[Rfam]
The record is a 69-nucleotide RNA from Thermococcus gammatolerans, which matches "Pab160 RNA" in Rfam. Its family is annotated with RNA processing in the Gene Ontology. By type it is an H/ACA-box small nucleolar RNA. Rfam's curators put it in the seed alignment. From the family's description: By using various computational and experimental approaches in three Pyrococcus genomes seven H/ACA sRNAs and 15 pseudouridine resides on rRNA were identified. One H/ACA motif was shown to guide up to three distinct pseudouridylations. The organism belongs to Thermococcus gammatolerans, within Archaea. On this family, see Muller et al., Nucleic Acids Res 2008: "Combined in silico and experimental identification of the Pyrococcus abyssi H/ACA sRNAs and their target sites in ribosomal RNAs". Pairs were carried over by alignment from the consensus structure.
RNA sequence: GCCCCCGGGAAACCGCGGGGGAUGAGCGCUUCGGCGAGCUGUGAUUCCCCUUCGCUCCCCGGGGGCACA
Numbered sequence: 001g002c003c004c005c006c007g008g009g010a011a012a013c014c015g016c017g018g019g020g021g022a023u024g025a026g027c028g029c030u031u032c033g034g035c036g037a038g039c040u041g042u043g044a045u046u047c048c049c050c051u052u053c054g055c056u057c058c059c060c061g062g063g064g065g066c067a068c069a
Base pairs, nucleotide, nucleotide: 001066002065003064004063005062006061007060008059009058017051018050019049020048021047022046026039027038028035029034